This 74-nucleotide RNA sequence from Halorhabdus utahensis belongs to the Rfam family "tRNA".
About the family: Transfer RNA (tRNA) molecules are approximately 80 nucleotides in length.
The organism belongs to Halorhabdus utahensis, within Archaea.
The family has 954 seed sequences and 5,335,975 matches in Rfam 15.1.
It is annotated as a transfer RNA.
RNA sequence: GGGCCGGUAGCUCAGUCAGGCAGAGCGUCUGGCUUUUAACCAGACGGUCAUGGGUUCAAUUCCCAUCCGGCCCG
Numbered sequence: 001g002g003g004c005c006g007g008u009a010g011c012u013c014a015g016u017c018a019g020g021c022a023g024a025g026c027g028u029c030u031g032g033c034u035u036u037u038a039a040c041c042a043g044a045c046g047g048u049c050a051u052g053g054g055u056u057c058a059a060u061u062c063c064c065a066u067c068c069g070g071c072c073c074g
Base pairs, nucleotide, nucleotide: 001073002072003071004070005069006068007067010026011025012024013023028044029043030042031041032040050066051065052064053063054062